[Rfam]
RNA: Fluoride riboswitch aptamer (crcB RNA motif)
RNA sequence: GUCAUCGGUGGAGAUGGCAUUCCUCCGCAUUCCAAACCGCCGCCCCGGCUGAUGAUGCCUACAUGACC
Number, nucleotide and partner (000 for none) at each position: 001g000002u000003c000004a000005u000006c000007g000008g000009u000010g026011g025012a024013g023014a000015u000016g059017g058018c057019a056020u055021u054022c000023c013024u012025c011026c010027g000028c000029a000030u000031u000032c000033c000034a000035a000036a000037c000038c000039g049040c048041c047042g000043c000044c000045c000046c000047g041048g040049c039050u000051g000052a000053u000054g021055a020056u019057g018058c017059c016060u000061a000062c000063a000064u000065g000066a000067c000068c000